[Rfam]
RNA sequence: UCCCCGCUUCUCCUCCCUGAGCGGGUGCCUGUCGAAAUUCGAUAAGGCGAUUGACCCGCCGUCAUGCGGCGGGUUUUUUUAU
Number, nucleotide and partner (000 for none) at each position: 001u000002c000003c025004c024005c023006g022007c021008u020009u000010c000011u000012c000013c000014u000015c000016c000017c000018u000019g000020a008021g007022c006023g005024g004025g003026u000027g048028c047029c046030u045031g000032u042033c041034g040035a000036a000037a000038u000039u000040c034041g033042a032043u000044a000045a030046g029047g028048c027049g000050a000051u000052u000053g000054a074055c073056c072057c071058g070059c069060c068061g067062u000063c000064a000065u000066g000067c061068g060069g059070c058071g057072g056073g055074u054075u000076u000077u000078u000079u000080u000081a000082u000
The record is an 82-nucleotide sequence from Caballeronia concitans, which matches "Burkholderia RNA 7 (anti-hemB)" in Rfam. This RNA motif was identified by computational search in b-proteobacteria Burkholderia. Co-purified with Hfq, expression confirmed by Northern blot. The literature on the family includes a 2017 paper in Sci Rep by Sass et al., "Identification of small RNAs abundant in Burkholderia cenocepacia biofilms reveal putative regulators with a potential role in carbon and iron metabolism". The source organism's lineage runs through Bacteria, Pseudomonadota, Betaproteobacteria, Burkholderiaceae and Caballeronia.